The family of this 168-nucleotide sequence from Dictyobacter aurantiacus is "glmS glucosamine-6-phosphate activated ribozyme aptamer".
For this family Rfam cites "Control of gene expression by a natural metabolite-responsive ribozyme" (Winkler et al., Nature, 2004).
The match comes from Rfam's covariance-model search (64 bits).
The base pairs follow the family's consensus structure, which is taken from published work.
RNA sequence: UUGUUAUUAGUAGCGCAUGGGCCGGACUAGAGGAGGGAGUCCGGUUGACGAGGAGGAGGCUGUUCGGAACCUGUCAGCGGGGAGCCUCCAGGGAUGAUCACGUCCCUGAGAAGAGAACACACAACGCCUGCCGGUAACGGUCAGGACAAACCGUUCUCAGUGGUGUAG
Numbered sequence: 001u002u003g004u005u006a007u008u009a010g011u012a013g014c015g016c017a018u019g020g021g022c023c024g025g026a027c028u029a030g031a032g033g034a035g036g037g038a039g040u041c042c043g044g045u046u047g048a049c050g051a052g053g054a055g056g057a058g059g060c061u062g063u064u065c066g067g068a069a070c071c072u073g074u075c076a077g078c079g080g081g082g083a084g085c086c087u088c089c090a091g092g093g094a095u096g097a098u099c100a101c102g103u104c105c106c107u108g109a110g111a112a113g114a115g116a117a118c119a120c121a122c123a124a125c126g127c128c129u130g131c132c133g134g135u136a137a138c139g140g141u142c143a144g145g146a147c148a149a150a151c152c153g154u155u156c157u158c159a160g161u162g163g164u165g166u167a168g
Stems, first nucleotide, its partner, number of pairs: 020046008056088005065077001067075002089108006113158006127144001130141004